[Rfam]
RNA sequence: GGCUUAAUUACUCUUUUGGUCCCUUAACUUAUUUUUUGGUUUCGUUUUGGUUCCUUAACUAUUAAAAGUUUCGUUUUGGUCCCUUAACUUAUUUUUUGGUCCCUUAACUCUAAUACAUUCAUCCUAACAUAAAGGACCAAAGUGGUUGACGGAGGAAGAGUUAAGGGACCAAAAUGAAACCAAAAAGUAAGUUAAAGGACCAAAACGAAACGUUUAAUAGUUAAGGGACCAAAACGAAACCAAAAAGUAAGUUAAGGGACCAAAACAAAACUUUUAAUAAUUAAGGGA
Numbered sequence: 001g002g003c004u005u006a007a008u009u010a011c012u013c014u015u016u017u018g019g020u021c022c023c024u025u026a027a028c029u030u031a032u033u034u035u036u037u038g039g040u041u042u043c044g045u046u047u048u049g050g051u052u053c054c055u056u057a058a059c060u061a062u063u064a065a066a067a068g069u070u071u072c073g074u075u076u077u078g079g080u081c082c083c084u085u086a087a088c089u090u091a092u093u094u095u096u097u098g099g100u101c102c103c104u105u106a107a108c109u110c111u112a113a114u115a116c117a118u119u120c121a122u123c124c125u126a127a128c129a130u131a132a133a134g135g136a137c138c139a140a141a142g143u144g145g146u147u148g149a150c151g152g153a154g155g156a157a158g159a160g161u162u163a164a165g166g167g168a169c170c171a172a173a174a175u176g177a178a179a180c181c182a183a184a185a186a187g188u189a190a191g192u193u194a195a196a197g198g199a200c201c202a203a204a205a206c207g208a209a210a211c212g213u214u215u216a217a218u219a220g221u222u223a224a225g226g227g228a229c230c231a232a233a234a235c236g237a238a239a240c241c242a243a244a245a246a247g248u249a250a251g252u253u254a255a256g257g258g259a260c261c262a263a264a265a266c267a268a269a270a271c272u273u274u275u276a277a278u279a280a281u282u283a284a285g286g287g288a
Stems, first nucleotide, its partner, number of pairs: 003285006014265003018261003022257013036243020
Dot-bracket structure: ..((((((.....(((.(((.(((((((((((((.((((((((((((((((((((........................................................................................................................................................................)))))))))))))))))))).))))))))))))).))).)))..............))))))...
About this RNA
A member of the RNA family "MIR2655 microRNA precursor family" from Medicago truncatula, 288 nucleotides long. A search with the family's covariance model found it, with a score of 170 bits.